[Rfam]
RNA sequence: CAAUGAGGUAGAGGUCGCGAAGCUUAUUAAUCCUGUGGAGUGCAAGAGACAUGAAGAAGCAGGUCUAGGAAGUUUCGCCGAAAUGUACAGAAUUCUCUUUUUGUUCUGUAUGUUGGGACGCAAGCGAAUAACUUGCGGACUGUCUUAGCAGUGAUGCUAAGUUGCGCUAUGUUUUGU
Number, nucleotide and partner (000 for none) at each position: 001c000002a000003a000004u000005g000006a172007g000008g170009u169010a168011g167012a000013g000014g000015u000016c000017g078018c077019g076020a075021a074022g073023c072024u071025u070026a000027u000028u000029a000030a000031u000032c063033c062034u061035g060036u059037g000038g000039a000040g000041u000042g000043c000044a000045a000046g000047a000048g000049a000050c000051a000052u000053g000054a000055a000056g000057a000058a000059g036060c035061a034062g033063g032064u000065c000066u000067a000068g000069g000070a025071a024072g023073u022074u021075u020076c019077g018078c017079c000080g000081a000082a114083a113084u112085g111086u110087a109088c108089a107090g106091a105092a104093u103094u000095c000096u000097c000098u000099u000100u000101u000102u000103g093104u092105u091106c090107u089108g088109u087110a086111u085112g084113u083114u082115g141116g140117g000118a000119c137120g136121c135122a134123a133124g132125c000126g000127a000128a000129u000130a000131a000132c124133u123134u122135g121136c120137g119138g000139a000140c116141u115142g000143u000144c161145u160146u159147a158148g157149c156150a000151g000152u000153g000154a000155u000156g149157c148158u147159a146160a145161g144162u000163u000164g000165c000166g000167c011168u010169a009170u008171g000172u006173u000174u000175u000176g000177u000
Source information: The record is a 177-nucleotide RNA sequence from Enterococcus pallens, which matches "Lysine riboswitch aptamer" in Rfam. Pairs were carried over by alignment from the consensus structure, which is taken from published work. A search with the family's covariance model found it, with a score of 88 bits. NCBI's taxonomy places the organism under Bacteria, Lactobacillales, Enterococcaceae, Enterococcus, Enterococcus pallens.